[Rfam]
RNA sequence: GGUCAUGAGUGCCAGCGCCAAGCCCCGGCUAGCUGGCCGGCAACCCUCCUCCGCGGUGGGGUGCUCCGGGUGACGACCAGGCCGCACGCGACCGCGUGCCGGCAAGCGCGGACC
Number, nucleotide and partner (000 for none) at each position: 001g078002g077003u076004c075005a000006u000007g000008a000009g038010u000011g037012c036013c035014a034015g033016c032017g000018c000019c000020a000021a030022g029023c000024c000025c000026c000027g000028g000029c022030u021031a000032g016033c015034u014035g013036g012037c011038c009039g065040g064041c063042a000043a000044c061045c060046c059047u000048c056049c055050u000051c000052c000053g000054c000055g049056g048057u000058g000059g046060g045061g044062u000063g041064c040065u039066c000067c000068g000069g000070g000071u000072g000073a000074c000075g004076a003077c002078c001079a000080g000081g103082c102083c101084g100085c098086a097087c096088g095089c094090g000091a000092c000093c000094g089095c088096g087097u086098g085099c000100c084101g083102g082103c081104a000105a000106g000107c000108g000109c000110g000111g000112a000113c000114c000

The family of this 114-nucleotide sequence from Pseudonocardia thermophila is "SAM (S-adenosyl methionine) riboswitch aptamer". The match comes from Rfam's covariance-model search (109 bits). The organism belongs to Pseudonocardia, within Bacteria.